[Rfam]
RNA sequence: CAGACAGCCAGACACACGCAAGUUGCAAGUACUGGAAGUCUUAAGUCUUGUUA
Number, nucleotide and partner (000 for none) at each position: 001c000002a000003g039004a000005c000006a000007g000008c035009c034010a000011g033012a030013c029014a000015c000016a000017c000018g051019c050020a049021a048022g047023u000024u000025g000026c000027a000028a000029g013030u012031a000032c000033u011034g009035g008036a000037a000038g000039u003040c000041u000042u000043a000044a000045g000046u000047c022048u021049u020050g019051u018052u000053a000
Rfam assigns this 53-nucleotide sequence from Polerovirus ZABYV to the family "Exoribonuclease-resistant RNA (xrRNA) plant-infecting virus (class 3)". Rfam's curators put it in the seed alignment. Rfam describes the family as follows. Exoribonuclease-resistant RNA (xrRNA) plant-infecting virus (class 3) is a ncRNA that was reported in Plant viruses. The family's consensus secondary structure is taken from published work. Rfam classes the family as a cis-regulatory element.